[Rfam]
RNA sequence: GAAACCUAAAACAACGAAAGCCCUACCUCUCUUCCAUCCUUGCGGCUCCGAAGACCGCGCCAGUGUGAUCCGGAUAUCAAAGCAUAUG
Numbered sequence: 001g002a003a004a005c006c007u008a009a010a011a012c013a014a015c016g017a018a019a020g021c022c023c024u025a026c027c028u029c030u031c032u033u034c035c036a037u038c039c040u041u042g043c044g045g046c047u048c049c050g051a052a053g054a055c056c057g058c059g060c061c062a063g064u065g066u067g068a069u070c071c072g073g074a075u076a077u078c079a080a081a082g083c084a085u086a087u088g
Stems, first nucleotide, its partner, number of pairs: 035067002039063002041059005047053001
The family of this 88-nucleotide RNA sequence from Saccharibacillus sacchari is "BsrC". Rfam describes the family as follows. The 301 nucleotide sequence from Kouji Nakamura has been trimmed to a highly conserved ~85 nucleotide long core to form this family. Pairs were carried over by alignment from the consensus structure, which was predicted with CMfinder. The source organism's lineage runs through Bacteria, Bacillati, Bacillota, Paenibacillaceae and Saccharibacillus sacchari.